[Rfam]
RNA sequence: GACUGGUUGGCGCAACGGUAGCGCGUUCGACUCCAGGCAUCCAAUUUCGGAUGCUAGUAAUCGAAAGGCUAGGCGUUCAAAUCGCCUACUGGUCA
Numbered sequence: 001g002a003c004u005g006g007u008u009g010g011c012g013c014a015a016c017g018g019u020a021g022c023g024c025g026u027u028c029g030a031c032u033c034c035a036g037g038c039a040u041c042c043a044a045u046u047u048c049g050g051a052u053g054c055u056a057g058u059a060a061u062c063g064a065a066a067g068g069c070u071a072g073g074c075g076u077u078c079a080a081a082u083c084g085c086c087u088a089c090u091g092g093u094c095a
Stems, first nucleotide, its partner, number of pairs: 001094007010024004026065005071087005

Rfam assigns this 95-nucleotide RNA sequence from Dactylellina haptotyla to the family "tRNA". Transfer RNA (tRNA) molecules are approximately 80 nucleotides in length. Taxonomically the source falls in Dactylellina haptotyla (Eukaryota, Opisthokonta, Ascomycota, Orbiliomycetes).